[Rfam]
c-di-AMP riboswitch aptamer (ydaO/yuaA leader): a 121-nucleotide sequence from Synechococcales cyanobacterium C42_A2020_086. The match comes from Rfam's covariance-model search (62 bits). The organism belongs to Synechococcales, within Bacteria.

RNA sequence: GAAUAUAGACCGAUGCAUCUGGAACGGGGGACCCACUUUUCGGGGCGUAUUUCUGUGAUGGAAAGGGACAUCUCUCUGUUCUAGCCCGGCAGCUAACCUCGUAAGCAUUGAGAGAAGACUG
Numbered sequence: 001g002a003a004u005a006u007a008g009a010c011c012g013a014u015g016c017a018u019c020u021g022g023a024a025c026g027g028g029g030g031a032c033c034c035a036c037u038u039u040u041c042g043g044g045g046c047g048u049a050u051u052u053c054u055g056u057g058a059u060g061g062a063a064a065g066g067g068a069c070a071u072c073u074c075u076c077u078g079u080u081c082u083a084g085c086c087c088g089g090c091a092g093c094u095a096a097c098c099u100c101g102u103a104a105g106c107a108u109u110g111a112g113a114g115a116a117g118a119c120u121g
Base pairs, nucleotide, nucleotide: 004023006021007020008019009018024102025101026100027099028098029097034042043087044086045085051063052062053061054060066081067080068079069078